Background
The family of this 103-nucleotide RNA from Bacillus sp. FJAT-27231 is "Guanidine-I riboswitch aptamer". Rfam's curators write: This family represents a conserved RNA structure found upstream of the ykkC and yxkD genes in Bacillus subtilis and related genes in other bacteria. The match comes from Rfam's covariance-model search (87 bits). The base pairs follow the family's consensus structure. The literature on the family includes a 2004 paper in Proc Natl Acad Sci U S A by Barrick et al., "New RNA motifs suggest an expanded scope for riboswitches in bacterial genetic control".
[Rfam]
RNA sequence: AUUCAUGCUUUCUAGGGUUCCGCGGGUAAAUCAAAUCCGGCCUGGUCCGAGAGAAGGCACACAGAUAAAUGCUGUGACACGGAGGGAUAAAAGCCCGGGAGAU
Numbered sequence: 001a002u003u004c005a006u007g008c009u010u011u012c013u014a015g016g017g018u019u020c021c022g023c024g025g026g027u028a029a030a031u032c033a034a035a036u037c038c039g040g041c042c043u044g045g046u047c048c049g050a051g052a053g054a055a056g057g058c059a060c061a062c063a064g065a066u067a068a069a070u071g072c073u074g075u076g077a078c079a080c081g082g083a084g085g086g087a088u089a090a091a092a093g094c095c096c097g098g099g100a101g102a103u
Stems, first nucleotide, its partner, number of pairs: 007058006015048002020045002022042001023039005060076005078098001080101001084096003